[Rfam]
RNA sequence: UUGGUUUAUAAGCAGAUUCCCGAGAGGAUUCACGAUUUAUGUGGAUAUGCCUUGUAACCGAGUUAACUAUCCAAUUAAUUGGAUUAAAUGUAUAGGGGGAAUAUAAAGUG
Numbered sequence: 001u002u003g004g005u006u007u008a009u010a011a012g013c014a015g016a017u018u019c020c021c022g023a024g025a026g027g028a029u030u031c032a033c034g035a036u037u038u039a040u041g042u043g044g045a046u047a048u049g050c051c052u053u054g055u056a057a058c059c060g061a062g063u064u065a066a067c068u069a070u071c072c073a074a075u076u077a078a079u080u081g082g083a084u085u086a087a088a089u090g091u092a093u094a095g096g097g098g099g100a101a102u103a104u105a106a107a108g109u110g
Stems, first nucleotide, its partner, number of pairs: 017101005024053004029045005058096002
A member of the RNA family "SAM-III riboswitch aptamer (SMK box)" from Loigolactobacillus backii, 110 nucleotides long. It scores 56 bits against the family's covariance model.